[Rfam]
RNA sequence: GAGGACCUUCGGGGACAGGUGAAAUUCCGUACCGGCGGUAAGGUUGUUUGCCGAGCCCGCGAGCCCUUUUGGGUUGAUCCGGUGAAAAGCCGGGGCCGACAGUAAAAGUCUGGAUGGGAGAAGGGAAAG
Numbered sequence: 001g002a003g004g005a006c007c008u009u010c011g012g013g014g015a016c017a018g019g020u021g022a023a024a025u026u027c028c029g030u031a032c033c034g035g036c037g038g039u040a041a042g043g044u045u046g047u048u049u050g051c052c053g054a055g056c057c058c059g060c061g062a063g064c065c066c067u068u069u070u071g072g073g074u075u076g077a078u079c080c081g082g083u084g085a086a087a088a089g090c091c092g093g094g095g096c097c098g099a100c101a102g103u104a105a106a107a108g109u110c111u112g113g114a115u116g117g118g119a120g121a122a123g124g125g126a127a128a129g
Base pairs, nucleotide, nucleotide: 006124007123008122009121010120018028019027031109032108033098034097035060036059037058038057055096056095063074064073065072078094079093080092081091082090100112101111102110